[Rfam]
RNA sequence: AUUAUGCGAUGAAGCGGGAGAUUGCUCGUUUUCGAGGUAACUUCCGUGGAGUAUGUCCGGUGCCUAUGGCACAUAAUCGGGCGG
Numbered sequence: 001a002u003u004a005u006g007c008g009a010u011g012a013a014g015c016g017g018g019a020g021a022u023u024g025c026u027c028g029u030u031u032u033c034g035a036g037g038u039a040a041c042u043u044c045c046g047u048g049g050a051g052u053a054u055g056u057c058c059g060g061u062g063c064c065u066a067u068g069g070c071a072c073a074u075a076a077u078c079g080g081g082c083g084g
Stems, first nucleotide, its partner, number of pairs: 014047003018044003025036004056084002060072004

The record is an 84-nucleotide sequence from Firmicutes bacterium CAG:555, which matches "S10-Clostridia ribosomal protein leader" in Rfam. The base pairs follow the family's consensus structure, which is taken from published work. Rfam classes the family as a cis-regulatory leader. NCBI's taxonomy places the organism under Bacteria, Bacillati, Bacillota. For this family Rfam cites "Discovery of 20 novel ribosomal leader candidates in bacteria and archaea" (Eckert and Weinberg, BMC Microbiol, 2020). It scores 38 bits against the family's covariance model.